The record is a 184-nucleotide RNA sequence from Lentibacillus sp. JNUCC-1, which matches "Lysine riboswitch aptamer" in Rfam. From the family's description: Riboswitches are metabolite binding domains within certain messenger RNAs that serve as precision sensors for their corresponding targets.
[Rfam]
RNA sequence: AGGUGGGGUAGAGGCGCGAUGUUUAACGAUCGGCAGUGGAGCUUGAGGAAGCAACGAUGCUGCAUGAUCAGGAAAUAUCGCCGAAGCAGAUAAUAGCCUCACUAUUAUCUUGCUGGGUCUGUAAUUCAUAGUUACAGGACUGUCUUGGUAAACGUCCGGUUUACCGAGUUGAGCUAUCUCAUUU
Numbered sequence: 001a002g003g004u005g006g007g008g009u010a011g012a013g014g015c016g017c018g019a020u021g022u023u024u025a026a027c028g029a030u031c032g033g034c035a036g037u038g039g040a041g042c043u044u045g046a047g048g049a050a051g052c053a054a055c056g057a058u059g060c061u062g063c064a065u066g067a068u069c070a071g072g073a074a075a076u077a078u079c080g081c082c083g084a085a086g087c088a089g090a091u092a093a094u095a096g097c098c099u100c101a102c103u104a105u106u107a108u109c110u111u112g113c114u115g116g117g118u119c120u121g122u123a124a125u126u127c128a129u130a131g132u133u134a135c136a137g138g139a140c141u142g143u144c145u146u147g148g149u150a151a152a153c154g155u156c157c158g159g160u161u162u163a164c165c166g167a168g169u170u171g172a173g174c175u176a177u178c179u180c181a182u183u184u
Base pairs, nucleotide, nucleotide: 006179007178008177009176010175011174016081017080018079019078020077021076022075023074024073033063034062035061036060037059038058085114086113087112088110089109090108091107092106093105094104095103115141116140118138119137120136121135122134123133124132125131144168145167146166147165148164149163150162151161